[Rfam]
RNA sequence: CCCAGGGUUUCGUUUCACUACACCCUGGGCUAUUAAAUAUCAGCCCUACAGGCUU
Numbered sequence: 001c002c003c004a005g006g007g008u009u010u011c012g013u014u015u016c017a018c019u020a021c022a023c024c025c026u027g028g029g030c031u032a033u034u035a036a037a038u039a040u041c042a043g044c045c046c047u048a049c050a051g052g053c054u055u
Base pairs, nucleotide, nucleotide: 001029002028003027004026005025006024007023008022042054043053044052045051
Shown here is a 55-nucleotide RNA sequence from Cryomorpha ignava, a member of the family "Acido-Lenti-1 RNA". A search with the family's covariance model found it, with a score of 39 bits. By type it is a small RNA.